[Rfam]
RNA sequence: CGGGAUUACUCCUGGAUUUUUACCAUUUGACCGGCGAACCGGCCGUGUUUUGGUGUCUGAUCCAGUAAACAUGACUGAAUCGGGAGCACCAUCUGCGUAGGCAUUUCUAUUAAGGCUUGCGCCACCUACGGUCUUGGAUAGCCCCCGCCAGGCAGGGACCCCAAAAACCGGCGAGCCGCAAGCGACUCGC
Numbered sequence: 001c002g003g004g005a006u007u008a009c010u011c012c013u014g015g016a017u018u019u020u021u022a023c024c025a026u027u028u029g030a031c032c033g034g035c036g037a038a039c040c041g042g043c044c045g046u047g048u049u050u051u052g053g054u055g056u057c058u059g060a061u062c063c064a065g066u067a068a069a070c071a072u073g074a075c076u077g078a079a080u081c082g083g084g085a086g087c088a089c090c091a092u093c094u095g096c097g098u099a100g101g102c103a104u105u106u107c108u109a110u111u112a113a114g115g116c117u118u119g120c121g122c123c124a125c126c127u128a129c130g131g132u133c134u135u136g137g138a139u140a141g142c143c144c145c146c147g148c149c150a151g152g153c154a155g156g157g158a159c160c161c162c163a164a165a166a167a168c169c170g171g172c173g174a175g176c177c178g179c180a181a182g183c184g185a186c187u188c189g190c
Stems, first nucleotide, its partner, number of pairs: 002161003006157002011152004024047002029044001031042004051091006057083005063077004095148003100143003110137008178190002181187002
Record summary
Pseudomonas sRNA P27: a 190-nucleotide RNA sequence from Atopomonas hussainii.